[Rfam]
RNA sequence: GCCGGGCGCGGUGGCUCGUGCCUGUAAUCCAAGCGCCGGGGAGGCUGAGGCUGGCGGACCGCUGAGCCCGGGGUUCGGGGCUGCCCUGCGUAUAAACCGCAGCGGGCGUCCGUAUCAAAACCGGCAUUGAUGUGGUGGUCCUGGGGUGGCAGGACACCAGGUUGAGUAAGGAAGUGCGAACCGGCGCGUGGUCGGGCGAGGAGCAGUGAGGAGAGCUCCCGUUGCCGCUCGGUAGUGGAGACGCGCCUGGGAUCUAGACCCUGGAGCAACCCCGGGUGACAGGGCGGGACCCAGCCUCUU
Numbered sequence: 001g002c003c004g005g006g007c008g009c010g011g012u013g014g015c016u017c018g019u020g021c022c023u024g025u026a027a028u029c030c031a032a033g034c035g036c037c038g039g040g041g042a043g044g045c046u047g048a049g050g051c052u053g054g055c056g057g058a059c060c061g062c063u064g065a066g067c068c069c070g071g072g073g074u075u076c077g078g079g080g081c082u083g084c085c086c087u088g089c090g091u092a093u094a095a096a097c098c099g100c101a102g103c104g105g106g107c108g109u110c111c112g113u114a115u116c117a118a119a120a121c122c123g124g125c126a127u128u129g130a131u132g133u134g135g136u137g138g139u140c141c142u143g144g145g146g147u148g149g150c151a152g153g154a155c156a157c158c159a160g161g162u163u164g165a166g167u168a169a170g171g172a173a174g175u176g177c178g179a180a181c182c183g184g185c186g187c188g189u190g191g192u193c194g195g196g197c198g199a200g201g202a203g204c205a206g207u208g209a210g211g212a213g214a215g216c217u218c219c220c221g222u223u224g225c226c227g228c229u230c231g232g233u234a235g236u237g238g239a240g241a242c243g244c245g246c247c248u249g250g251g252a253u254c255u256a257g258a259c260c261c262u263g264g265a266g267c268a269a270c271c272c273c274g275g276g277u278g279a280c281a282g283g284g285c286g287g288g289a290c291c292c293a294g295c296c297u298c299u300u
Stems, first nucleotide, its partner, number of pairs: 001045003004023008028042003047298008059287005066277007077270001080267003084263001088261001090259001093256002096253001098251001103249007111238001113237003117233001120229001122227005127221001128164004133159005139154005174218001176216002185208003192201002

Rfam assigns this 300-nucleotide RNA from Ifrita kowaldi to the family "Metazoan signal recognition particle RNA".
Lineage of the source: Eukaryota > Chordata > Craniata > Sauria > Ifrita.